Small nucleolar RNA SNORD56: a 77-nucleotide RNA from Clupea harengus.
Its family is annotated with RNA processing and nucleolus in the Gene Ontology.
The source organism's lineage runs through Eukaryota, Euteleostomi, Actinopterygii, Clupei and Clupea.
It is annotated as a C/D-box small nucleolar RNA.
The base pairs follow the family's consensus structure, which was predicted with PFOLD.
The literature on the family includes a 2002 paper in Mol Cell Biol by Galardi et al., "Purified box C/D snoRNPs are able to reproduce site-specific 2'-O-methylation of target RNA in vitro".
It scores 37 bits against the family's covariance model.

RNA sequence: UUGCGAUGAUGUCUAUAUUUUUCGUCAACAGCAUGUCACCCCUCGGGAGUUCAUGUUGAAAAUUUUAAACUGAGCAA
Number, nucleotide and partner (000 for none) at each position: 001u000002u076003g075004c074005g000006a000007u000008g026009a025010u024011g023012u000013c000014u000015a000016u000017a000018u000019u000020u000021u000022u000023c011024g010025u009026c008027a000028a000029c000030a000031g000032c000033a000034u000035g000036u000037c000038a000039c000040c000041c000042c000043u000044c000045g000046g000047g000048a000049g000050u000051u000052c000053a000054u000055g000056u000057u000058g000059a000060a000061a000062a000063u000064u000065u000066u000067a000068a000069a000070c000071u000072g000073a000074g004075c003076a002077a000